[Rfam]
RNA sequence: AAGAUAGCAUCACAUAAGUGAGUUAUACUUUAAAAAAGAUAUGCUAUGAUACGGCAAUGAAUUUUAUAUAGAUAUGUUUUACUGCUUGGAUCAUAAGGACUGAGACAGGAAG
Numbered sequence: 001a002a003g004a005u006a007g008c009a010u011c012a013c014a015u016a017a018g019u020g021a022g023u024u025a026u027a028c029u030u031u032a033a034a035a036a037a038g039a040u041a042u043g044c045u046a047u048g049a050u051a052c053g054g055c056a057a058u059g060a061a062u063u064u065u066a067u068a069u070a071g072a073u074a075u076g077u078u079u080u081a082c083u084g085c086u087u088g089g090a091u092c093a094u095a096a097g098g099a100c101u102g103a104g105a106c107a108g109g110a111a112g
Stems, first nucleotide, its partner, number of pairs: 001030003004026005010021002082108003085104005091099002
Shown here is a 112-nucleotide sequence from Megasphaera sp. UPII 135-E, a member of the family "pan motif". By type it is a cis-regulatory element. Taxonomically the source falls in Megasphaera (Bacteria, Bacillota, Veillonellales, Veillonellaceae). A search with the family's covariance model found it, with a score of 41 bits.